[Rfam]
RNA sequence: AACUGAUCCAUGAGAGUAGGAACCCCAUCAUACGGGAAUUUCGAAAUCAUGGGUUUUUUG
Numbered sequence: 001a002a003c004u005g006a007u008c009c010a011u012g013a014g015a016g017u018a019g020g021a022a023c024c025c026c027a028u029c030a031u032a033c034g035g036g037a038a039u040u041u042c043g044a045a046a047u048c049a050u051g052g053g054u055u056u057u058u059u060g
Stems, first nucleotide, its partner, number of pairs: 005055009019042004024036003